Rfam assigns this 54-nucleotide sequence from Channa argus to the family "UnaL2 LINE 3' element".
RNA sequence: UUGUACCUCACUUGUAAGUCGCUUUGGAUAAAAGCGUCUGCUAAAUUACUAAAU
Dot-bracket structure: ............((((...((((((.....))))))..))).)...........
A search with the family's covariance model found it, with a score of 61 bits. Pairs were carried over by alignment from the consensus structure, which is taken from published work. The family has 30 seed sequences and 493,311 matches in Rfam 15.1.